[Rfam]
RNA sequence: ACACGGGAGAGGAGGUGGUCCAGACAGAUGCAUAGUUAUUGGACUCGUGAGGUGGCUGCUCGCUAGCCGCCUGCUCGACGCAGGACCAAGGGUGACACCUGGUUCGCCGGCCGGUCGGCUGGCAAUCUCGAGCAGUCACCCGGCCCGUGGGCUUCCGGUGCUAGUCCCACCGGACCGUGCAAAUGCGCGGAAGUAGCCCACGGGCCGUUCUAU
Numbered sequence: 001a002c003a004c005g006g007g008a009g010a011g012g013a014g015g016u017g018g019u020c021c022a023g024a025c026a027g028a029u030g031c032a033u034a035g036u037u038a039u040u041g042g043a044c045u046c047g048u049g050a051g052g053u054g055g056c057u058g059c060u061c062g063c064u065a066g067c068c069g070c071c072u073g074c075u076c077g078a079c080g081c082a083g084g085a086c087c088a089a090g091g092g093u094g095a096c097a098c099c100u101g102g103u104u105c106g107c108c109g110g111c112c113g114g115u116c117g118g119c120u121g122g123c124a125a126u127c128u129c130g131a132g133c134a135g136u137c138a139c140c141c142g143g144c145c146c147g148u149g150g151g152c153u154u155c156c157g158g159u160g161c162u163a164g165u166c167c168c169a170c171c172g173g174a175c176c177g178u179g180c181a182a183a184u185g186c187g188c189g190g191a192a193g194u195a196g197c198c199c200a201c202g203g204g205c206c207g208u209u210c211u212a213u
Stems, first nucleotide, its partner, number of pairs: 014060006062123006069116001071114002073111003141207013155173006
Rfam assigns this 213-nucleotide RNA from Phytoactinopolyspora mesophila to the family "Actinobacteria sRNA Ms_IGR-5". The pairing is the family consensus, mapped onto this sequence. The family's RNA type in Rfam is small RNA. Taxonomically the source falls in Phytoactinopolyspora (Bacteria, Actinomycetota, Actinomycetes, Jiangellales). A reference for the family is Li et al. (2013), "Identification of small RNAs in Mycobacterium smegmatis using heterologous Hfq", RNA.